[Rfam]
Background
Shown here is a 72-nucleotide sequence from Vitis vinifera, a member of the family "tRNA". About the family: Transfer RNA (tRNA) molecules are approximately 80 nucleotides in length. Their secondary structure includes four short double-helical elements and three loops (D, anti-codon, and T loops). Further hydrogen bonds mediate the characteristic L-shaped molecular structure. tRNAs have two regions of fundamental functional importance: the anti-codon, which is responsible for specific mRNA codon recognition, and the 3' end, to which the tRNAs corresponding amino acid is attached (by aminoacyl-tRNA synthetases). tRNAs cope with the degeneracy of the genetic code in two manners: having more than one tRNA (with a specific anti-codon) for a particular amino acid; and 'wobble' base-pairing, i.e. permitting non-standard base-pairing at the 3rd anti-codon position. Gene Ontology term of the family: triplet codon-amino acid adaptor activity. Lineage of the source: Eukaryota > Streptophytina > Mesangiospermae > Vitaceae > Vitis.

RNA sequence: UCCUCAAUAGCUCAAUGAUAGAGCGAUCGAUCGUUAACCUAUUCGUUAUAGGUUCGAAUCCUAUUUGGGGAG
Numbered sequence: 001u002c003c004u005c006a007a008u009a010g011c012u013c014a015a016u017g018a019u020a021g022a023g024c025g026a027u028c029g030a031u032c033g034u035u036a037a038c039c040u041a042u043u044c045g046u047u048a049u050a051g052g053u054u055c056g057a058a059u060c061c062u063a064u065u066u067g068g069g070g071a072g
Stems, first nucleotide, its partner, number of pairs: 001071007010024004026042002029039001048064005
It is annotated as a transfer RNA.